This 57-nucleotide RNA sequence belongs to the Rfam family "Plastid-psbA-3 3UTR RNA". Its Rfam clan is "Plastid-psbA 3UTR RNA clan". Pairs were carried over by alignment from the consensus structure, which was predicted with LocARNA. It is one of the family's seed sequences. It is annotated as a cis-regulatory element. Plastid psbA-3 is a non-coding RNA (ncRNA) present in plastids.
RNA sequence: AAAGGAGCAAUAGUCGACUUCUUGUUUUAUCAAGGGGACGUUAUUGCUCCUUUCUUU
Numbered sequence: 001a002a003a004g005g006a007g008c009a010a011u012a013g014u015c016g017a018c019u020u021c022u023u024g025u026u027u028u029a030u031c032a033a034g035g036g037g038a039c040g041u042u043a044u045u046g047c048u049c050c051u052u053u054c055u056u057u
Base pairs, nucleotide, nucleotide: 001053002052003051004050005049006048007047008046009045010044011043012042013041014040019036020035021034022033023032024031